RNA sequence: GACGGACCCGGUUGACCGGGUGGCUCGGCCGGGCGCCUAUCCCUCGGACAACC
Numbered sequence: 001g002a003c004g005g006a007c008c009c010g011g012u013u014g015a016c017c018g019g020g021u022g023g024c025u026c027g028g029c030c031g032g033g034c035g036c037c038u039a040u041c042c043c044u045c046g047g048a049c050a051a052c053c
Stems, first nucleotide, its partner, number of pairs: 006021006029047005

sul1 RNA: a 53-nucleotide sequence from Sandarakinorhabdus fusca. The organism belongs to Sandarakinorhabdus, within Bacteria. The base pairs follow the family's consensus structure, which is taken from published work. The match comes from Rfam's covariance-model search (62 bits). By type it is a riboswitch.